[Rfam]
This 176-nucleotide sequence from Clostridium botulinum belongs to the Rfam family "Lysine riboswitch aptamer".
RNA sequence: AACUGAGGUAGAGGUGCGAAUUUUAAGAGUAAAGCUGUGGAGUUAAGCGCUGUGAAACAGUUUGAAAGGAAUUUUUGCCGAAGCAUACAACUAAUGCUUUAAUGUUGUAUUGCUGGUUUUGUAUAAAAUAUAUGCAAGACUGUCACAGAAAUAAUUUGUGGAGAGCUAUCAUUUGU
Dot-bracket structure: ......(((((....(((((..((.......(((((((..................)))))))......))..)))))...((((((((((............)))))).))))(((((((((((.....))))))))))).(((((((.....)))))))....)))))......